[Rfam]
RNA sequence: GAGUUAGUCAUGAUUAUAAAAAUAAUUUUUCGUUCUGACUUGCUUAAUUUGGGCAUUACAAACUUUUUAUUACAACCAUAGAGUCUUAGCUAC
Numbered sequence: 001g002a003g004u005u006a007g008u009c010a011u012g013a014u015u016a017u018a019a020a021a022a023u024a025a026u027u028u029u030u031c032g033u034u035c036u037g038a039c040u041u042g043c044u045u046a047a048u049u050u051g052g053g054c055a056u057u058a059c060a061a062a063c064u065u066u067u068u069a070u071u072a073c074a075a076c077c078a079u080a081g082a083g084u085c086u087u088a089g090c091u092a093c
Stems, first nucleotide, its partner, number of pairs: 003093002006091002
Overview:
A member of the RNA family "Small nucleolar RNA snoR8a" from Theobroma cacao, 93 nucleotides long. Gene Ontology terms of the family: nucleolus and RNA processing. Pairs were carried over by alignment from the consensus structure, which was predicted with WAR. The family's RNA type in Rfam is C/D-box small nucleolar RNA.